Notes: MIR168 microRNA precursor family: a 193-nucleotide RNA sequence from Olea europaea. The match comes from Rfam's covariance-model search (83 bits). Pairs were carried over by alignment from the consensus structure, which was predicted with WAR. Rfam links the family to the GO terms RISC complex and miRNA-mediated post-transcriptional gene silencing.
[Rfam]
RNA sequence: GUUGCAGUCGUCUCAGAUUCGCUUGGUGCAGGUCGGGAACUUUGUUCGCCUUUACGGCGUGGUUUCCACGUCGUCUGGCAUGAUUCCAACAGUAUAUAUACAAAUGUGUACGGUAUACGUAUAAUUGAUGUUGUUGUUUUGGCGAAAAUUAGGUUCCUGCCUUGCAUCAACUGAAUCGGAGACCACGGUGAAU
Numbered sequence: 001g002u003u004g005c006a007g008u009c010g011u012c013u014c015a016g017a018u019u020c021g022c023u024u025g026g027u028g029c030a031g032g033u034c035g036g037g038a039a040c041u042u043u044g045u046u047c048g049c050c051u052u053u054a055c056g057g058c059g060u061g062g063u064u065u066c067c068a069c070g071u072c073g074u075c076u077g078g079c080a081u082g083a084u085u086c087c088a089a090c091a092g093u094a095u096a097u098a099u100a101c102a103a104a105u106g107u108g109u110a111c112g113g114u115a116u117a118c119g120u121a122u123a124a125u126u127g128a129u130g131u132u133g134u135u136g137u138u139u140u141g142g143c144g145a146a147a148a149u150u151a152g153g154u155u156c157c158u159g160c161c162u163u164g165c166a167u168c169a170a171c172u173g174a175a176u177c178g179g180a181g182a183c184c185a186c187g188g189u190g191a192a193u
Stems, first nucleotide, its partner, number of pairs: 013180002017176004023170010034159005040153002